[Rfam]
RNA sequence: ACUAUUUGAGGUGGUAAAUUUCGUUGCGACCACGCGCCGAUGGUAUGACAGGGGAAACCCGAGAGAUGCGGGAGAAAGCGACGCCCGCCAAAUUGU
Numbered sequence: 001a002c003u004a005u006u007u008g009a010g011g012u013g014g015u016a017a018a019u020u021u022c023g024u025u026g027c028g029a030c031c032a033c034g035c036g037c038c039g040a041u042g043g044u045a046u047g048a049c050a051g052g053g054g055a056a057a058c059c060c061g062a063g064a065g066a067u068g069c070g071g072g073a074g075a076a077a078g079c080g081a082c083g084c085c086c087g088c089c090a091a092a093u094u095g096u
Stems, first nucleotide, its partner, number of pairs: 001096002004093005011033005023082005035063001037054002068088005